[Rfam]
RNA sequence: UCACUCUGGCUUCACUGCACAACGUCAAAACCCCUCGCCUUUUACUAGGAGUUUCCGUGCAGAGGAGCAUUAUAAUGAGUCUAAAUCUCAAAUUUUUUCAGCCCUACUCUGUAGGGU
Numbered sequence: 001u002c003a004c005u006c007u008g009g010c011u012u013c014a015c016u017g018c019a020c021a022a023c024g025u026c027a028a029a030a031c032c033c034c035u036c037g038c039c040u041u042u043u044a045c046u047a048g049g050a051g052u053u054u055c056c057g058u059g060c061a062g063a064g065g066a067g068c069a070u071u072a073u074a075a076u077g078a079g080u081c082u083a084a085a086u087c088u089c090a091a092a093u094u095u096u097u098u099c100a101g102c103c104c105u106a107c108u109c110u111g112u113a114g115g116g117u
Stems, first nucleotide, its partner, number of pairs: 003080004009068005015062005028054004033049003100117001102116006